[Rfam]
Nucleotides: 165
Base pairs, nucleotide, nucleotide: 012123013122014121015120016048017047018046019045020044021043023042024041025040026039027038049090050089051088052087056083057082058081060079061078063076064075092118093117096110097109138164139163140162142160147156148155
Number, partner (000 for none) and nucleotide at each position: 001000a002000g003000a004000c005000u006000u007000a008000a009000c010000u011000g012123g013122c014121a015120g016048g017047g018046g019045a020044g021043a022000c023042a024041c025040c026039a027038u028000g029000a030000u031000c032000g033000c034000a035000u036000a037000g038027g039026u040025g041024g042023u043021u044020u045019u046018c047017c048016c049090a050089g051088g052087g053000u054000a055000a056083g057082g058081c059000u060079u061078g062000c063076c064075c065000g066000u067000u068000g069000c070000a071000c072000u073000c074000u075064g076063g077000a078061u079060g080000u081058g082057c083056u084000g085000u086000c087052c088051c089050c090049u091000g092118c093117a094000g095000u096110u097109u098000u099000c100000c101000c102000a103000u104000a105000u106000a107000a108000g109097a110096a111000c112000c113000u114000u115000g116000a117093u118092g119000a120015c121014u122013g123012u124000g125000u126000a127000a128000u129000c130000u131000g132000u133000g134000c135000u136000a137000g138164u139163g140162g141000u142160g143000g144000u145000u146000c147156g148155u149000g150000u151000u152000c153000a154000g155148a156147c157000u158000u159000u160142c161000c162140c163139c164138a165000u